The family of this 102-nucleotide RNA sequence from Hypoxylon sp. CI-4A is "Small nucleolar RNA Z13/snr52".
[Rfam]
RNA sequence: CCAAUUUUCAUGACGAAACAUUUCGGAUGUUAAAUCAUAAUUUAACUGAAUGCGCAAACAACACCAUGUUGAUAUUUCCGUUGCCUUCCUUCUGAUCGAUCA
Numbered sequence: 001c002c003a004a005u006u007u008u009c010a011u012g013a014c015g016a017a018a019c020a021u022u023u024c025g026g027a028u029g030u031u032a033a034a035u036c037a038u039a040a041u042u043u044a045a046c047u048g049a050a051u052g053c054g055c056a057a058a059c060a061a062c063a064c065c066a067u068g069u070u071g072a073u074a075u076u077u078c079c080g081u082u083g084c085c086u087u088c089c090u091u092c093u094g095a096u097c098g099a100u101c102a
Base pairs, nucleotide, nucleotide: 004100005099024080025079026078027077
Overview:
Lineage of the source: Eukaryota > Pezizomycotina > sordariomyceta > Sordariomycetes > Hypoxylon. The base pairs follow the family's consensus structure, which was predicted with PFOLD.